Shown here is a 91-nucleotide RNA sequence from Leucobacter sp. cx-328, a member of the family "Selenocysteine transfer RNA".
The source organism's lineage runs through Bacteria, Bacillati, Actinomycetota, Micrococcales and Leucobacter.
[Rfam]
RNA sequence: GGAAGCGUCUGGUUCCUGGUGGUGCCCCCGGUCUUCAAAACCGGUGAAACCGAGUAUCUCGGUUUGGCGGGUUCGAUUCCCGUCCGCUUCC
Number, nucleotide and partner (000 for none) at each position: 001g091002g090003a089004a088005g087006c086007g085008u000009c000010u000011g026012g025013u024014u000015c022016c021017u000018g000019g000020u000021g016022g015023u000024g013025c012026c011027c000028c044029c043030g042031g041032u040033c000034u000035u000036c000037a000038a000039a000040a032041c031042c030043g029044g028045u000046g000047a065048a064049a063050c062051c061052g000053a000054g000055u000056a000057u000058c000059u000060c000061g051062g050063u049064u048065u047066g000067g000068c082069g081070g080071g079072u000073u000074c000075g000076a000077u000078u000079c071080c070081c069082g068083u000084c000085c007086g006087c005088u004089u003090c002091c001